[Rfam]
RNA sequence: UAAUACUAAUUGAAAAUGAUUAUCAAUUCCAACUAGAACAUUCCCCCCACAUACAUGACGUUUUAUUGGAUUGGUCAUUUUCAAUUAUCCCCUUUUAUAUGCCCGUAAAAGACUAACGUUGAGAAACAACGUUUCAAUAAAAGUAGUAGACCUUUGACACUUGAGGUCCACUGCUUUU
Numbered sequence: 001u002a003a004u005a006c007u008a009a010u011u012g013a014a015a016a017u018g019a020u021u022a023u024c025a026a027u028u029c030c031a032a033c034u035a036g037a038a039c040a041u042u043c044c045c046c047c048c049a050c051a052u053a054c055a056u057g058a059c060g061u062u063u064u065a066u067u068g069g070a071u072u073g074g075u076c077a078u079u080u081u082c083a084a085u086u087a088u089c090c091c092c093u094u095u096u097a098u099a100u101g102c103c104c105g106u107a108a109a110a111g112a113c114u115a116a117c118g119u120u121g122a123g124a125a126a127c128a129a130c131g132u133u134u135c136a137a138u139a140a141a142a143g144u145a146g147u148a149g150a151c152c153u154u155u156g157a158c159a160c161u162u163g164a165g166g167u168c169c170a171c172u173g174c175u176u177u178u
Stems, first nucleotide, its partner, number of pairs: 005088001007087002010084011024073004029069003035064005092111007116132005139178009149168004
RNA: S. aureus tsr25 small RNA
Organism: Staphylococcus saccharolyticus